This 66-nucleotide sequence from Myotis lucifugus belongs to the Rfam family "Small nucleolar RNA SNORD58". Rfam links the family to the GO terms RNA processing and nucleolus.

[Rfam]
RNA sequence: CUGCGAUGAUGGCACCUCUUAGGACACCUUUGGAUUCACCGUGAAAACAGCGGUUCUCUGAGCAGC
Numbered sequence: 001c002u003g004c005g006a007u008g009a010u011g012g013c014a015c016c017u018c019u020u021a022g023g024a025c026a027c028c029u030u031u032g033g034a035u036u037c038a039c040c041g042u043g044a045a046a047a048c049a050g051c052g053g054u055u056c057u058c059u060g061a062g063c064a065g066c
Base pairs, nucleotide, nucleotide: 001065002064003063004062
Lineage of the source: Eukaryota > Euteleostomi > Chiroptera > Yangochiroptera > Myotis. snoRNA U58 is found in introns 1, 3 and 6 of the ribosomal protein RPL17 gene in humans. The family's consensus secondary structure was predicted with PFOLD. Clan: SNORD58 clan.